[Rfam]
RNA sequence: GGCCCACAUUGGAGUUGUGUCUUGGGCUAACAUUUCUGUGUCCUUGUUUGCACACUCACGUGGUCCGAGA
Numbered sequence: 001g002g003c004c005c006a007c008a009u010u011g012g013a014g015u016u017g018u019g020u021c022u023u024g025g026g027c028u029a030a031c032a033u034u035u036c037u038g039u040g041u042c043c044u045u046g047u048u049u050g051c052a053c054a055c056u057c058a059c060g061u062g063g064u065c066c067g068a069g070a
Stems, first nucleotide, its partner, number of pairs: 001066002004063004017053004024043004
Overview
Trypanosomatid snoRNA TB9Cs2H1: a 70-nucleotide sequence from Trypanosoma brucei. For this family Rfam cites "A genome-wide analysis of C/D and H/ACA-like small nucleolar RNAs in Trypanosoma brucei reveals a trypanosome-specific pattern of rRNA modification" (Liang et al., RNA, 2005). Pairs were carried over by alignment from the consensus structure, which was predicted with WAR. Rfam links the family to the GO terms nucleolus and RNA processing. It is annotated as an H/ACA-box small nucleolar RNA.